[Rfam]
A member of the RNA family "ASpks TB sRNA" from Streptomyces chumphonensis, 75 nucleotides long. The match comes from Rfam's covariance-model search (82 bits). Rfam classes the family as an antisense RNA. Rfam 15.1 lists 9,052 matches to the family in 683 species. The organism belongs to Streptomyces, within Bacteria. Pairs were carried over by alignment from the consensus structure, which is taken from published work.
RNA sequence: CUUCACCGAGCCCAGCCACAAAGGCCGUUCGGCGGCGCGCCCCUGGCCGUAGGUGGCCAACAGGGCCUGCGCCUC
Numbered sequence: 001c002u003u004c005a006c007c008g009a010g011c012c013c014a015g016c017c018a019c020a021a022a023g024g025c026c027g028u029u030c031g032g033c034g035g036c037g038c039g040c041c042c043c044u045g046g047c048c049g050u051a052g053g054u055g056g057c058c059a060a061c062a063g064g065g066c067c068u069g070c071g072c073c074u075c
Stems, first nucleotide, its partner, number of pairs: 015025003032070002038065001044059002047056003